A member of the RNA family "Small nucleolar RNA SNORA40" from Myotis lucifugus, 123 nucleotides long. The literature on the family includes a 1997 paper in J Mol Biol by Ofengand and Bakin, "Mapping to nucleotide resolution of pseudouridine residues in large subunit ribosomal RNAs from representative eukaryotes, prokaryotes, archaebacteria, mitochondria and chloroplasts". The snoRNA ACA 40 belongs to the H/ACA family of snoRNAs and guides the pseudouridylation of 28S rRNA subunit at position U4565. NB This family has a high threshold value to exclude a large number of closely related sequences that do not appear to have conserved H and ACA boxes, and may be pseudogenes. It scores 69 bits against the family's covariance model. Pairs were carried over by alignment from the consensus structure, which was predicted with RNAalifold.

RNA sequence: AACACUUGUGUUUGUUUUUAAUUUGUGGACAAAGACUAGAUAUAGGUGCAAAAAAAUCAAUCAUUUUUUGCCAUCCAGAACUCAUCAUUCAGUAUGAGUUUUAAUACAACAAAAAUUGUCUGU
Dot-bracket structure: ..(((((((.(..((((((..(....)...))))))...).))))))).............((..(((((......(((((((((........))))))))).......)))))..)).....
Numbered sequence: 001a002a003c004a005c006u007u008g009u010g011u012u013u014g015u016u017u018u019u020a021a022u023u024u025g026u027g028g029a030c031a032a033a034g035a036c037u038a039g040a041u042a043u044a045g046g047u048g049c050a051a052a053a054a055a056a057u058c059a060a061u062c063a064u065u066u067u068u069u070g071c072c073a074u075c076c077a078g079a080a081c082u083c084a085u086c087a088u089u090c091a092g093u094a095u096g097a098g099u100u101u102u103a104a105u106a107c108a109a110c111a112a113a114a115a116u117u118g119u120c121u122g123u
Stems, first nucleotide, its partner, number of pairs: 003048007011040001014036006022027001062118002066114005077102009